[Rfam]
RNA sequence: UUUGUUCACUCCCCCUCAAAGACUUCUAGCUAGCUAGUUCUAACCAAGUGUCUAGAAGCUAGAAGUCUUUGGAGAGAGUGGACAA
Numbered sequence: 001u002u003u004g005u006u007c008a009c010u011c012c013c014c015c016u017c018a019a020a021g022a023c024u025u026c027u028a029g030c031u032a033g034c035u036a037g038u039u040c041u042a043a044c045c046a047a048g049u050g051u052c053u054a055g056a057a058g059c060u061a062g063a064a065g066u067c068u069u070u071g072g073a074g075a076g077a078g079u080g081g082a083c084a085a
Stems, first nucleotide, its partner, number of pairs: 006081006013074001015072001017071012
RNA: MIR473 microRNA precursor family
Organism: Apium graveolens